[Rfam]
RNA sequence: AAGAAGAGUGCGGGAGAGAUUUAGCGUGACUGCUAAACGCCGAAGGAAGAAGCUGAAAAGUUCGCCGCUUUUUAGUGAAGAUCUCAGGCAAAAGGACCGUACUUGGACG
Numbered sequence: 001a002a003g004a005a006g007a008g009u010g011c012g013g014g015a016g017a018g019a020u021u022u023a024g025c026g027u028g029a030c031u032g033c034u035a036a037a038c039g040c041c042g043a044a045g046g047a048a049g050a051a052g053c054u055g056a057a058a059a060g061u062u063c064g065c066c067g068c069u070u071u072u073u074a075g076u077g078a079a080g081a082u083c084u085c086a087g088g089c090a091a092a093a094g095g096a097c098c099g100u101a102c103u104u105g106g107a108c109g
Stems, first nucleotide, its partner, number of pairs: 006104008020037004039089003042085002046083002052076010
Rfam assigns this 109-nucleotide sequence from Alkaliphilus oremlandii to the family "Glycine riboswitch aptamer". It scores 58 bits against the family's covariance model.